[Rfam]
The record is an 87-nucleotide RNA sequence from Zingiber officinale, which matches "Small nucleolar RNA Z159/U59" in Rfam.
The base pairs follow the family's consensus structure, which was predicted with PFOLD.
Rfam classes the family as a C/D-box small nucleolar RNA.
Taxonomically the source falls in Zingiber (Eukaryota, Magnoliopsida, Mesangiospermae, commelinids).
The match comes from Rfam's covariance-model search (40 bits).
Its Rfam clan is "SNORD59 clan".
RNA sequence: GACUCCGGUGGCGAUUCACCGAAAACUUUCAUUCUUCCUAAGUGGCAUACGCUGCGGAAUAAAUAUAUAGAGCUAAACUGAGGAGUG
Numbered sequence: 001g002a003c004u005c006c007g008g009u010g011g012c013g014a015u016u017c018a019c020c021g022a023a024a025a026c027u028u029u030c031a032u033u034c035u036u037c038c039u040a041a042g043u044g045g046c047a048u049a050c051g052c053u054g055c056g057g058a059a060u061a062a063a064u065a066u067a068u069a070g071a072g073c074u075a076a077a078c079u080g081a082g083g084a085g086u087g
Stems, first nucleotide, its partner, number of pairs: 003085004